[Rfam]
c-di-AMP riboswitch aptamer (ydaO/yuaA leader): a 148-nucleotide RNA from Oceanobacillus piezotolerans. The pairing is the family consensus, mapped onto this sequence. A search with the family's covariance model found it, with a score of 90 bits. About the family: This family represents a conserved RNA structure found upstream of the ydaO and yuaA genes in Bacillus subtilis and related genes in other bacteria. The ydaO/yuaA element is thought to act as a genetic 'off' switch for the ydaO and yuaA genes in its native state. NCBI's taxonomy places the organism under Bacteria, Bacillati, Bacilli, Bacillaceae, Oceanobacillus.
RNA sequence: ACCUUUUAGUCGCUUAAUUAUUUUUAUGAGCGGGGGAACCAUCGAAUAACAGGUUGUUAUUCAGGGGUGAAUCUUACUGAUUGGUAAGAAGGGAUACUCUCAGUCCCUAAUCCGGCAGCUAACCUCGUAGGCGUUAAUUUGCAAUUCC
Numbered sequence: 001a002c003c004u005u006u007u008a009g010u011c012g013c014u015u016a017a018u019u020a021u022u023u024u025u026a027u028g029a030g031c032g033g034g035g036g037a038a039c040c041a042u043c044g045a046a047u048a049a050c051a052g053g054u055u056g057u058u059a060u061u062c063a064g065g066g067g068u069g070a071a072u073c074u075u076a077c078u079g080a081u082u083g084g085u086a087a088g089a090a091g092g093g094a095u096a097c098u099c100u101c102a103g104u105c106c107c108u109a110a111u112c113c114g115g116c117a118g119c120u121a122a123c124c125u126c127g128u129a130g131g132c133g134u135u136a137a138u139u140u141g142c143a144a145u146u147c148c
Stems, first nucleotide, its partner, number of pairs: 011133004018029003030128006040064001065113003073088004091107004